[Rfam]
RNA sequence: AAAGCUUUGAGGCCAUAGCACAAGUGCUCAUGGUGCAGCCAUGUUAGAUUCCAAUGAAUCUGCAAAUUCUACU
Numbered sequence: 001a002a003a004g005c006u007u008u009g010a011g012g013c014c015a016u017a018g019c020a021c022a023a024g025u026g027c028u029c030a031u032g033g034u035g036c037a038g039c040c041a042u043g044u045u046a047g048a049u050u051c052c053a054a055u056g057a058a059u060c061u062g063c064a065a066a067u068u069c070u071a072c073u
Base pairs, nucleotide, nucleotide: 008041011040012039013038017073018072020070022068023067024036025035026034045062046061047060048059049058050057051056

Shown here is a 73-nucleotide sequence from Alligator mississippiensis, a member of the family "Mammalian CPEB3 ribozyme". Its family is annotated with RNA nuclease activity in the Gene Ontology. The family's consensus secondary structure is taken from published work.